RNA sequence: UUUGGGGGAGCGCUUUGUUCACGUCAGCACAAAGCGCUUUUUUGAAGGCUCACUUUGUGCUGACGUGGACAAAACGCUCCCCUAGGG
Number, nucleotide and partner (000 for none) at each position: 001u086002u085003u084004g083005g082006g081007g080008g079009a078010g077011c076012g075013c000014u073015u072016u071017g070018u069019u068020c067021a066022c000023g064024u063025c062026a061027g060028c059029a058030c057031a056032a055033a054034g053035c000036g051037c000038u000039u000040u047041u046042u000043u000044g000045a000046a041047g040048g000049c000050u000051c036052a000053c034054u033055u032056u031057g030058u029059g028060c027061u026062g025063a024064c023065g000066u021067g020068g019069a018070c017071a016072a015073a014074a000075c012076g011077c010078u009079c008080c007081c006082c005083u004084a003085g002086g001087g000
MIR7486 microRNA precursor family: an 87-nucleotide sequence from Gossypium australe. The organism belongs to Gossypium, within Eukaryota. Rfam 15.1 lists 10,132 matches to the family in 36 species. The match comes from Rfam's covariance-model search (72 bits). Gene Ontology terms of the family: miRNA-mediated post-transcriptional gene silencing and RISC complex.